[Rfam]
RNA sequence: AUAUUGUGAUGAUUAAUUUUAUGUGUCAACUUGACUGGGCCACAGAGUGCCUAGAUAU
Number, nucleotide and partner (000 for none) at each position: 001a058002u057003a056004u055005u000006g000007u000008g000009a000010u000011g000012a000013u000014u000015a000016a000017u000018u000019u000020u000021a000022u000023g000024u000025g000026u000027c000028a000029a000030c000031u000032u000033g000034a000035c000036u000037g000038g000039g000040c000041c000042a000043c000044a000045g000046a000047g000048u000049g000050c000051c000052u000053a000054g000055a004056u003057a002058u001
Shown here is a 58-nucleotide sequence from Hipposideros armiger, a member of the family "Small nucleolar RNA SNORD66".
A reference for the family is Huttenhofer et al. (2001), "RNomics: an experimental approach that identifies 201 candidates for novel, small, non-messenger RNAs in mouse", EMBO J.
Rfam's curators write: snoRNA HBII-142 is part of the C/D family of snoRNAs. It is the human orthologue of the mouse MBII-142 snoRNA and is predicted to guide 2'O-ribose methylation of small 18S rRNA at residue C1272.
Rfam classes the family as a C/D-box small nucleolar RNA.
Taxonomically the source falls in Hipposideros (Eukaryota, Teleostomi, Dipnotetrapodomorpha, Eutheria).